[Rfam]
RNA sequence: GAACGUCUUCAGGGCGGGGUGAGAUUCCCCACCGGCGGUAGGUGCGGCGCCCUUGCGGCGAGGCACGAGCCCGCGAGCGCUUUCGAUGGCAUGCGAUCACGCCCCGCCGCGUGGGUCCGUGCCUUGGAAGGUCAGCAGAUCCGGUCAGAUGCCGGAGCCGACGGUCGGCAGGGCCCGGGGCCAUGCCGGAAAGUCCGGAUGAAAGAAGACGGUA
Numbered sequence: 001g002a003a004c005g006u007c008u009u010c011a012g013g014g015c016g017g018g019g020u021g022a023g024a025u026u027c028c029c030c031a032c033c034g035g036c037g038g039u040a041g042g043u044g045c046g047g048c049g050c051c052c053u054u055g056c057g058g059c060g061a062g063g064c065a066c067g068a069g070c071c072c073g074c075g076a077g078c079g080c081u082u083u084c085g086a087u088g089g090c091a092u093g094c095g096a097u098c099a100c101g102c103c104c105c106g107c108c109g110c111g112u113g114g115g116u117c118c119g120u121g122c123c124u125u126g127g128a129a130g131g132u133c134a135g136c137a138g139a140u141c142c143g144g145u146c147a148g149a150u151g152c153c154g155g156a157g158c159c160g161a162c163g164g165u166c167g168g169c170a171g172g173g174c175c176c177g178g179g180g181c182c183a184u185g186c187c188g189g190a191a192a193g194u195c196c197g198g199a200u201g202a203a204a205g206a207a208g209a210c211g212g213u214a
Stems, first nucleotide, its partner, number of pairs: 004211007017029003033160002035074004069158002077136002140156005162197003